This 184-nucleotide sequence from Oxobacter pfennigii belongs to the Rfam family "Lysine riboswitch aptamer". The base pairs follow the family's consensus structure, which is taken from published work. From the family's description: Riboswitches are metabolite binding domains within certain messenger RNAs that serve as precision sensors for their corresponding targets.

Nucleotides: 184
Base pairs, nucleotide, nucleotide: 006179007178008177009176010175011174016080017079018078019077020076021075023073024072032065033064034063035062036061037060084110085109086108087107089105090104091103092102093101095099111137112136115133116132117131118130119129120128121127139169140168141167142166143165144164145163
Number, partner (000 for none) and nucleotide at each position: 001000a002000g003000g004000u005000g006179a007178g008177g009176u010175a011174g012000a013000g014000g015000a016080g017079c018078a019077g020076c021075g022000u023073u024072u025000a026000a027000u028000a029000g030000u031000a032065c033064a034063u035062a036061u037060g038000c039000u040000g041000a042000g043000g044000c045000c046000g047000g048000a049000a050000g051000c052000c053000g054000a055000g056000g057000a058000u059000a060037c061036a062035u063034a064033u065032g066000g067000a068000a069000a070000g071000g072024a073023a074000c075021c076020g077019c078018u079017g080016c081000c082000g083000a084110a085109g086108u087107u088000u089105c090104a091103g092102a093101c094000a095099u096000c097000c098000a099095a100000a101093g102092u103091c104090u105089g106000c107087a108086g109085c110084u111137g112136g113000g114000a115133c116132u117131g118130u119129a120128u121127c122000g123000a124000a125000g126000a127121g128120a129119u130118g131117c132116a133115g134000g135000a136112c137111u138000g139169u140168c141167a142166u143165c144164c145163a146000c147000g148000c149000a150000u151000u152000u153000g154000a155000c156000c157000a158000u159000u160000g161000c162000a163145u164144g165143g166142g167141u168140g169139g170000u171000g172000c173000g174011c175010u176009a177008u178007c179006u180000c181000a182000a183000a184000a